Rfam assigns this 65-nucleotide RNA from Yersinia intermedia to the family "ClpQY promoter". The sequence is in the family's curated seed alignment. The family's RNA type in Rfam is cis-regulatory element.
[Rfam]
RNA sequence: CCCCGUGCUGUUUUUUGACAGGCAGUACGGGGACUCAUUCAGUCUGCAACGAGGGUCCGCUCGUG
Number, nucleotide and partner (000 for none) at each position: 001c032002c031003c030004c029005g028006u027007g026008c025009u024010g023011u022012u021013u020014u000015u000016u000017g000018a000019c000020a013021g012022g011023c010024a009025g008026u007027a006028c005029g004030g003031g002032g001033a000034c000035u000036c000037a000038u000039u000040c000041a000042g000043u000044c000045u000046g000047c000048a000049a000050c000051g000052a000053g000054g000055g000056u000057c000058c000059g000060c000061u000062c000063g000064u000065g000